[Rfam]
Description: Shown here is a 137-nucleotide RNA sequence from Pipistrellus kuhlii, a member of the family "Small nucleolar RNA SNORA67". From the family's description: U67 belongs to the H/ACA class of snoRNAs which are thought to guide the sites of modification of uridines to pseudouridines.

RNA sequence: UCCCAAAGAGAUUCUUUCUCCAGGGGACAAAUCAUAUACUCUAGGAAUGUAGCUCAUUGGGAAAAUGUCUGGUAUUCUUGGGAAUAUUGUAGAUGAGCAUAUGUGCUAUUUUUGCUCUUGUAAUUAUCAGUAUGUGC
Numbered sequence: 001u002c003c004c005a006a007a008g009a010g011a012u013u014c015u016u017u018c019u020c021c022a023g024g025g026g027a028c029a030a031a032u033c034a035u036a037u038a039c040u041c042u043a044g045g046a047a048u049g050u051a052g053c054u055c056a057u058u059g060g061g062a063a064a065a066u067g068u069c070u071g072g073u074a075u076u077c078u079u080g081g082g083a084a085u086a087u088u089g090u091a092g093a094u095g096a097g098c099a100u101a102u103g104u105g106c107u108a109u110u111u112u113u114g115c116u117c118u119u120g121u122a123a124u125u126a127u128c129a130g131u132a133u134g135u136g137c
Stems, first nucleotide, its partner, number of pairs: 002061005009054002019046003022040002070129005076123001079120003090108003
Taxonomically the source falls in Pipistrellus (Eukaryota, Vertebrata, Sarcopterygii, Tetrapoda).
Its family is annotated with nucleolus and RNA processing in the Gene Ontology.